Shown here is a 131-nucleotide sequence from Palleronia caenipelagi, a member of the family "FMN riboswitch aptamer (RFN element)".
The base pairs follow the family's consensus structure, which is taken from published work.
The organism belongs to Palleronia, within Bacteria.

RNA sequence: CGUCAUUCUCAGGGCAGGGUGAAAUUCCCUACCGGCGGUGAUAGCCCGCGAGCGCCAUUCUUCGGGAUGGGUCAGCAGAUCCGGUGUAAUUCCGGGGCCGACGGUCAUAGUCCGGAUGGAAGAGGAUGAUG
Numbered sequence: 001c002g003u004c005a006u007u008c009u010c011a012g013g014g015c016a017g018g019g020u021g022a023a024a025u026u027c028c029c030u031a032c033c034g035g036c037g038g039u040g041a042u043a044g045c046c047c048g049c050g051a052g053c054g055c056c057a058u059u060c061u062u063c064g065g066g067a068u069g070g071g072u073c074a075g076c077a078g079a080u081c082c083g084g085u086g087u088a089a090u091u092c093c094g095g096g097g098c099c100g101a102c103g104g105u106c107a108u109a110g111u112c113c114g115g116a117u118g119g120a121a122g123a124g125g126a127u128g129a130u131g
Base pairs, nucleotide, nucleotide: 003129004128005127006126007125008124009123010122017029018028019027031111032110033100034099035049036048037047038046044098045097052076053075080096081095082094083093084092102114103113104112